Shown here is a 78-nucleotide RNA sequence from Carpinus fangiana, a member of the family "small nucleolar RNA snoR117". The base pairs follow the family's consensus structure, which was predicted with RNAalifold. Its family is annotated with nucleolus and RNA processing in the Gene Ontology. The match comes from Rfam's covariance-model search (67 bits). Taxonomically the source falls in Carpinus (Eukaryota, Streptophyta, eudicotyledons, Gunneridae). Rfam 15.1 lists 419 matches to the family in 211 species.
[Rfam]
RNA sequence: GGCCUAUGAUGCAUCAAUUUUGUCCGUACCAUCUGAGAUACUCAUUGAUGUGACAAACUUUCGCCUUUUCUGAGGCCU
Numbered sequence: 001g002g003c004c005u006a007u008g009a010u011g012c013a014u015c016a017a018u019u020u021u022g023u024c025c026g027u028a029c030c031a032u033c034u035g036a037g038a039u040a041c042u043c044a045u046u047g048a049u050g051u052g053a054c055a056a057a058c059u060u061u062c063g064c065c066u067u068u069u070c071u072g073a074g075g076c077c078u
Stems, first nucleotide, its partner, number of pairs: 001077004